Rfam assigns this 152-nucleotide RNA sequence from Rossellomorea aquimaris to the family "Manganese Mn2+ riboswitch aptamer (yybP-ykoY)". Rfam links the family to the GO term manganese ion binding. The family has 29 seed sequences and 1,126 matches in Rfam 15.1. The source organism's lineage runs through Bacteria, Bacillati, Bacilli, Caryophanales and Rossellomorea.

Nucleotides: 152
Stems, first nucleotide, its partner, number of pairs: 026037003039079010056069005
Number, partner (000 for none) and nucleotide at each position: 001000c002000u003000a004000c005000c006000u007000g008000u009000c010000a011000a012000a013000g014000g015000g016000g017000a018000g019000u020000a021000g022000c023000u024000a025000u026037a027036g028035g029000c030000u031000u032000c033000g034000g035028c036027c037026u038000a039079a040078a041077c042076a043075a044074a045073g046072u047071c048070g049000u050000c051000a052000u053000u054000u055000c056069a057068u058067g059066g060065a061000u062000a063000c064000u065060u066059c067058c068057a069056u070048c071047g072046g073045c074044u075043u076042u077041g078040u079039u080000g081000g082000c083000a084000u085000u086000u087000u088000g089000a090000a091000c092000a093000a094000u095000g096000c097000u098000a099000a100000g101000c102000a103000a104000g105000a106000c107000c108000u109000u110000u111000g112000c113000c114000u115000u116000u117000a118000u119000u120000g121000g122000g123000c124000a125000a126000g127000g128000g129000u130000c131000u132000u133000u134000u135000u136000u137000a138000u139000u140000u141000u142000c143000u144000g145000a146000a147000a148000u149000u150000c151000c152000u